[Rfam]
RNA sequence: CCAAGGAUUUACAUCCUUAGCUAAAAUAUAUCAUCCCUUCAGGAUU
Numbered sequence: 001c002c003a004a005g006g007a008u009u010u011a012c013a014u015c016c017u018u019a020g021c022u023a024a025a026a027u028a029u030a031u032c033a034u035c036c037c038u039u040c041a042g043g044a045u046u
Base pairs, nucleotide, nucleotide: 001020003018004017005016006015007014008013033045034044035043036042